[Rfam]
RNA: Small nucleolar RNA SNORA1
RNA sequence: AGCACUGGAGACGAAUGAGAGAGGUAGCCAGUGAAGUAGGAGGCACAUAAUAAAGAGGGUGCUCCAGUGCUACAUUGAGACACAGGUUGUGCUUCCAUCACAGUAAUUUUAUUGCAGUGGUGACAGUGAGACCUGUAACAUUU
Numbered sequence: 001a002g003c004a005c006u007g008g009a010g011a012c013g014a015a016u017g018a019g020a021g022a023g024g025u026a027g028c029c030a031g032u033g034a035a036g037u038a039g040g041a042g043g044c045a046c047a048u049a050a051u052a053a054a055g056a057g058g059g060u061g062c063u064c065c066a067g068u069g070c071u072a073c074a075u076u077g078a079g080a081c082a083c084a085g086g087u088u089g090u091g092c093u094u095c096c097a098u099c100a101c102a103g104u105a106a107u108u109u110u111a112u113u114g115c116a117g118u119g120g121u122g123a124c125a126g127u128g129a130g131a132c133c134u135g136u137a138a139c140a141u142u143u
Stems, first nucleotide, its partner, number of pairs: 002070003006066005082136005096122006